[Rfam]
RNA sequence: UUGUGGCAAGGAUGAUGAUACAAUUAGAUGCCUGAGAGGUGAAUAUCUCUUUGAAUUUAAUUAACGAGGCUUAUUGAUAUCCUGACUUGCCGAUG
Numbered sequence: 001u002u003g004u005g006g007c008a009a010g011g012a013u014g015a016u017g018a019u020a021c022a023a024u025u026a027g028a029u030g031c032c033u034g035a036g037a038g039g040u041g042a043a044u045a046u047c048u049c050u051u052u053g054a055a056u057u058u059a060a061u062u063a064a065c066g067a068g069g070c071u072u073a074u075u076g077a078u079a080u081c082c083u084g085a086c087u088u089g090c091c092g093a094u095g
Stems, first nucleotide, its partner, number of pairs: 001095001004092007
Dot-bracket structure: (..(((((((...........................................................................)))))))..)
Small nucleolar RNA Z266: a 95-nucleotide RNA from Olea europaea. Rfam classes the family as a C/D-box small nucleolar RNA. The base pairs follow the family's consensus structure, which was predicted with PFOLD. The organism belongs to Olea europaea, within Eukaryota. Rfam links the family to the GO terms nucleolus and RNA processing.